[Rfam]
RNA sequence: CUUCCGCCCUCCCCGCACAGGAGGACGGACCGAGGAACCGGUGCUCUCUGCCCUGACUGCUCCGGCUCCUCAUCCUUCGGCCGACCGGGACCGCACACCCCACGGCCGAUGUUGCUCCGGGCUGCGGUGCCGAGAGGGCUGAGGGUCCCUCUCAGGCGC
Numbered sequence: 001c002u003u004c005c006g007c008c009c010u011c012c013c014c015g016c017a018c019a020g021g022a023g024g025a026c027g028g029a030c031c032g033a034g035g036a037a038c039c040g041g042u043g044c045u046c047u048c049u050g051c052c053c054u055g056a057c058u059g060c061u062c063c064g065g066c067u068c069c070u071c072a073u074c075c076u077u078c079g080g081c082c083g084a085c086c087g088g089g090a091c092c093g094c095a096c097a098c099c100c101c102a103c104g105g106c107c108g109a110u111g112u113u114g115c116u117c118c119g120g121g122c123u124g125c126g127g128u129g130c131c132g133a134g135a136g137g138g139c140u141g142a143g144g145g146u147c148c149c150u151c152u153c154a155g156g157c158g159c
Stems, first nucleotide, its partner, number of pairs: 003029004008024005032071005038065004043060002045056002077109007087100003113129004118124002132153007
Dot-bracket structure: ..((((.(((((.......))))).))))..(((((.((((.((((........))..)).)))).))))).....(((((((...(((........)))..)))))))...((((.((...)).))))..(((((((........)))))))......
About this RNA:
Streptomyces sRNA scr5239: a 159-nucleotide RNA sequence from Streptomyces coelicolor. The family's RNA type in Rfam is small RNA. On this family, see Vockenhuber et al., PLoS One 2015: "Identification of metE as a second target of the sRNA scr5239 in Streptomyces coelicolor". It is one of the family's seed sequences. Its family is annotated with mRNA binding and negative regulation of translation in the Gene Ontology.